[Rfam]
RNA sequence: GGGGGGGGGCUGGAUCCUGGGCUGUGUCCUCAGCGCCUUGUGCUCCGGGGCCUGCGCUGUUGUAUUUGCGCUACCGGCCCCGCAGCCCCUU
Numbered sequence: 001g002g003g004g005g006g007g008g009g010c011u012g013g014a015u016c017c018u019g020g021g022c023u024g025u026g027u028c029c030u031c032a033g034c035g036c037c038u039u040g041u042g043c044u045c046c047g048g049g050g051c052c053u054g055c056g057c058u059g060u061u062g063u064a065u066u067u068g069c070g071c072u073a074c075c076g077g078c079c080c081c082g083c084a085g086c087c088c089c090u091u
Stems, first nucleotide, its partner, number of pairs: 001091006009083002012079002016077002019074001021072001023070004027064001029062001031059006040052001042051003
Overview: The record is a 91-nucleotide sequence from Canis lupus, which matches "mir-8799 microRNA precursor family" in Rfam. Taxonomically the source falls in Canis lupus (Eukaryota, Metazoa, Bilateria, Sarcopterygii). Its Rfam clan is "mir-8791 microRNA precursor clan".